This 46-nucleotide RNA sequence from Fimbriiglobus ruber belongs to the Rfam family "Acido-Lenti-1 RNA".
RNA sequence: CCCAGGGCUUACGACCUGGGCUAUUCACUGUCACCCCGUUGGGGUU
Numbered sequence: 001c002c003c004a005g006g007g008c009u010u011a012c013g014a015c016c017u018g019g020g021c022u023a024u025u026c027a028c029u030g031u032c033a034c035c036c037c038g039u040u041g042g043g044g045u046u
Base pairs, nucleotide, nucleotide: 001020002019003018004017005016006015008013033045034044035043036042037041
NCBI's taxonomy places the organism under Bacteria, Pseudomonadati, Planctomycetota, Gemmatales, Fimbriiglobus. The base pairs follow the family's consensus structure, which is taken from published work. It is annotated as a small RNA. Rfam 15.1 lists 2,607 matches to the family in 171 species.